[Rfam]
RNA: Small nucleolar RNA U105B
Organism: Erinaceus europaeus
RNA sequence: CUGUGUGCGGAUGAUGACAACAUGUCUGGCUGAGUCCCCGUGAUGGUCCAGUCUCAAAGUAAACGCCCUGACGCACACUGG
Numbered sequence: 001c002u003g004u005g006u007g008c009g010g011a012u013g014a015u016g017a018c019a020a021c022a023u024g025u026c027u028g029g030c031u032g033a034g035u036c037c038c039c040g041u042g043a044u045g046g047u048c049c050a051g052u053c054u055c056a057a058a059g060u061a062a063a064c065g066c067c068c069u070g071a072c073g074c075a076c077a078c079u080g081g
Stems, first nucleotide, its partner, number of pairs: 005076005010021001012019002030051003034047001